A member of the RNA family "Group II catalytic intron D1-D4-3" from Osedax symbiont Rs1, 187 nucleotides long.
The base pairs follow the family's consensus structure.
On this family, see Bonen and Vogel, Trends Genet 2001: "The ins and outs of group II introns".
Lineage of the source: Bacteria > Pseudomonadota > Gammaproteobacteria > Oceanospirillales > Oceanospirillaceae.
RNA sequence: UUAACCGUGAGGUUUGGUGCUUAGGAAACCAGUAGCCUCUUUGCUCAAUUAAGGCGAGCUGAUGAACAACAACAUCAUAUUAGGCGUAGGCUGGAGGCGAGUUGUCACAAGACGACGAAGCCAUGUGAUACUUUUGGUUAGAGAGCAUGGCCACCGUAAAGAUGGGGUUGCUUACAGGGAUGUAAGU
Numbered sequence: 001u002u003a004a005c006c007g008u009g010a011g012g013u014u015u016g017g018u019g020c021u022u023a024g025g026a027a028a029c030c031a032g033u034a035g036c037c038u039c040u041u042u043g044c045u046c047a048a049u050u051a052a053g054g055c056g057a058g059c060u061g062a063u064g065a066a067c068a069a070c071a072a073c074a075u076c077a078u079a080u081u082a083g084g085c086g087u088a089g090g091c092u093g094g095a096g097g098c099g100a101g102u103u104g105u106c107a108c109a110a111g112a113c114g115a116c117g118a119a120g121c122c123a124u125g126u127g128a129u130a131c132u133u134u135u136g137g138u139u140a141g142a143g144a145g146c147a148u149g150g151c152c153a154c155c156g157u158a159a160a161g162a163u164g165g166g167g168u169u170g171c172u173u174a175c176a177g178g179g180a181u182g183u184a185a186g187u
Stems, first nucleotide, its partner, number of pairs: 001016001003014004039186003045180002050174004055170001057169004073164004078160001084157003089152005096122003101116004